Rfam assigns this 119-nucleotide RNA sequence from Portulaca oleracea to the family "Plastid-psbA-1 3UTR RNA". Rfam's curators put it in the seed alignment. The organism belongs to Portulaca, within Eukaryota. It is annotated as a cis-regulatory element. The literature on the family includes a 2023 paper in Plant Commun by Richter et al., "Retrograde signaling in plants: A critical review focusing on the GUN pathway and beyond". From the family's description: Plastid psbA-1 is a non-coding RNA (ncRNA) present in plastids.
RNA sequence: UCGAAGCUCCAUCUACAAAUGGAUAAAAUUUCGUUCGUAGUUUAGUGUAUACGAUUUAUUGAAAGUAAGGGGGCAAUACCUGUUUCUUGUCUGAUCAAGAAAUUGGUUAUUGCUCCCUU
Numbered sequence: 001u002c003g004a005a006g007c008u009c010c011a012u013c014u015a016c017a018a019a020u021g022g023a024u025a026a027a028a029u030u031u032c033g034u035u036c037g038u039a040g041u042u043u044a045g046u047g048u049a050u051a052c053g054a055u056u057u058a059u060u061g062a063a064a065g066u067a068a069g070g071g072g073g074c075a076a077u078a079c080c081u082g083u084u085u086c087u088u089g090u091c092u093g094a095u096c097a098a099g100a101a102a103u104u105g106g107u108u109a110u111u112g113c114u115c116c117c118u119u
Base pairs, nucleotide, nucleotide: 008023009022010021011020012019067118069116071115072114073113074112075111076110077109078108082103084101085100086099087098088097